Description: Shown here is a 265-nucleotide sequence from Clostridium acetireducens, a member of the family "Bacterial large signal recognition particle RNA". It is annotated as a non-coding RNA gene. Pairs were carried over by alignment from the consensus structure, which is taken from published work.

RNA sequence: CCGUGCUAGAUGGGGAGUUAGCGGUGCCCUGUACCUGCAAUCCGCUAUAGCAGGGUUGAAUUCCUCAUAGAGGCUUUAAUUUGUGGGGACUGGUCUAUAUAACUAAUGUUGAGAAUUGGGCCCUACGCAACGGAAACUCAUGAACCCCGUCAGAUCCGGAAGGAAGCAGCGGUAAGUGAAUAUUUUCGUGUGCCGUAGGCAAACCUAAUUUGAGUUAGUUAUAUAGAUAACGCUCAUAGGUUAUAAGUCGAAGUGAGGUGCACGG
Numbered sequence: 001c002c003g004u005g006c007u008a009g010a011u012g013g014g015g016a017g018u019u020a021g022c023g024g025u026g027c028c029c030u031g032u033a034c035c036u037g038c039a040a041u042c043c044g045c046u047a048u049a050g051c052a053g054g055g056u057u058g059a060a061u062u063c064c065u066c067a068u069a070g071a072g073g074c075u076u077u078a079a080u081u082u083g084u085g086g087g088g089a090c091u092g093g094u095c096u097a098u099a100u101a102a103c104u105a106a107u108g109u110u111g112a113g114a115a116u117u118g119g120g121c122c123c124u125a126c127g128c129a130a131c132g133g134a135a136a137c138u139c140a141u142g143a144a145c146c147c148c149g150u151c152a153g154a155u156c157c158g159g160a161a162g163g164a165a166g167c168a169g170c171g172g173u174a175a176g177u178g179a180a181u182a183u184u185u186u187c188g189u190g191u192g193c194c195g196u197a198g199g200c201a202a203a204c205c206u207a208a209u210u211u212g213a214g215u216u217a218g219u220u221a222u223a224u225a226g227a228u229a230a231c232g233c234u235c236a237u238a239g240g241u242u243a244u245a246a247g248u249c250g251a252a253g254u255g256a257g258g259u260g261c262a263c264g265g
Stems, first nucleotide, its partner, number of pairs: 001265006009057003012030004017025003034054005063258006072249005078242010091232002094227006102219002105216003113211008122199006128190002131188005136181001138179004147172004155164003